[Rfam]
RNA: Streptomyces sRNA 4677
Organism: Streptomyces sp. BA2
RNA sequence: CGCCCCCGCGCCCAGGCCUCAAACACGAAGAUCCACCGGGAGCUUUAACCCUCCGGGGCCCGCCCGCACCAGACGCGAGUCACCCACAUCGGUGAACGCGUCGUAUCGCCAUGCCUGUUGGCGUCUGACCUGCCUAGGCUCAGGUCGACAACCAAAAACAGAACGGCCCUCGGCCGGGACUGCAAUCCCGGCCGAGGGCCUGACCACACAGGAAGGCCUAGAGCUUCCUC
Numbered sequence: 001c002g003c004c005c006c007c008g009c010g011c012c013c014a015g016g017c018c019u020c021a022a023a024c025a026c027g028a029a030g031a032u033c034c035a036c037c038g039g040g041a042g043c044u045u046u047a048a049c050c051c052u053c054c055g056g057g058g059c060c061c062g063c064c065c066g067c068a069c070c071a072g073a074c075g076c077g078a079g080u081c082a083c084c085c086a087c088a089u090c091g092g093u094g095a096a097c098g099c100g101u102c103g104u105a106u107c108g109c110c111a112u113g114c115c116u117g118u119u120g121g122c123g124u125c126u127g128a129c130c131u132g133c134c135u136a137g138g139c140u141c142a143g144g145u146c147g148a149c150a151a152c153c154a155a156a157a158a159c160a161g162a163a164c165g166g167c168c169c170u171c172g173g174c175c176g177g178g179a180c181u182g183c184a185a186u187c188c189c190g191g192c193c194g195a196g197g198g199c200c201u202g203a204c205c206a207c208a209c210a211g212g213a214a215g216g217c218c219u220a221g222a223g224c225u226u227c228c229u230c
Base pairs, nucleotide, nucleotide: 008207010205016070080095081094082093083092084091109144110143112142113141165200166199167198168197169196171194172193173192176189177188178187179186211228212227213226214225215224